[Rfam]
RNA sequence: GUCCACAGUAAGUUUUGCAGGCUUGCAUCCAGCUUGUCAAAGUUUUGCUGUGCAAAUCCAUGCAAAACUCGCUGUGUCU
Dot-bracket structure: ...((((((.(((((((((((.((((((..(((.............)))))))))..)).))))))))).))))))...
The family of this 79-nucleotide sequence from Megalops atlanticus is "mir-19 microRNA precursor family". The literature on the family includes a 2002 paper in Genes Dev by Mourelatos et al., "miRNPs: a novel class of ribonucleoproteins containing numerous microRNAs". The organism belongs to Megalops, within Eukaryota.